A member of the RNA family "Yersinia sRNA 276" from Xenorhabdus bovienii, 192 nucleotides long.
On this family, see Nuss et al., PLoS Genet 2015: "Transcriptomic profiling of Yersinia pseudotuberculosis reveals reprogramming of the Crp regulon by temperature and uncovers Crp as a master regulator of small RNAs".
Rfam classes the family as an antisense RNA.
The base pairs follow the family's consensus structure, which was predicted with RNAfold.
The match comes from Rfam's covariance-model search (140 bits).
The organism belongs to Xenorhabdus bovienii, within Bacteria.
[Rfam]
RNA sequence: CACGGACAUCAGGGAUUCAUUCUGGGAACCUUGACCGACCGCCAGAUAGGAAUUCAUGCCCAGCUCUUUCAUCUGCUCUUCGCCAAUCACCUUGGUAUUCAGAUUGUCGGCAGUGUCAGCAAGCUGGCGCGCCUGUGAUGCCAGAUAUGCGGCAUUACAGAUAUUCGGCGGCAUGUUUGCCAGAUCUUUCGA
Numbered sequence: 001c002a003c004g005g006a007c008a009u010c011a012g013g014g015a016u017u018c019a020u021u022c023u024g025g026g027a028a029c030c031u032u033g034a035c036c037g038a039c040c041g042c043c044a045g046a047u048a049g050g051a052a053u054u055c056a057u058g059c060c061c062a063g064c065u066c067u068u069u070c071a072u073c074u075g076c077u078c079u080u081c082g083c084c085a086a087u088c089a090c091c092u093u094g095g096u097a098u099u100c101a102g103a104u105u106g107u108c109g110g111c112a113g114u115g116u117c118a119g120c121a122a123g124c125u126g127g128c129g130c131g132c133c134u135g136u137g138a139u140g141c142c143a144g145a146u147a148u149g150c151g152g153c154a155u156u157a158c159a160g161a162u163a164u165u166c167g168g169c170g171g172c173a174u175g176u177u178u179g180c181c182a183g184a185u186c187u188u189u190c191g192a
Stems, first nucleotide, its partner, number of pairs: 005186002012032003016028003020024001033043001035041001050059001062077003079131001081129005087123001092119006099110002133160003137156006164183002167180001